[Rfam]
RNA sequence: CUUGAGACAACAUGCUUCUUUAUAUGCCCAUAUGGAUUGCAUAGCUAUGGAAUGUAAGGAAGUGUGUGGUUUCGGU
Numbered sequence: 001c002u003u004g005a006g007a008c009a010a011c012a013u014g015c016u017u018c019u020u021u022a023u024a025u026g027c028c029c030a031u032a033u034g035g036a037u038u039g040c041a042u043a044g045c046u047a048u049g050g051a052a053u054g055u056a057a058g059g060a061a062g063u064g065u066g067u068g069g070u071u072u073c074g075g076u
Stems, first nucleotide, its partner, number of pairs: 007070002010067016028050005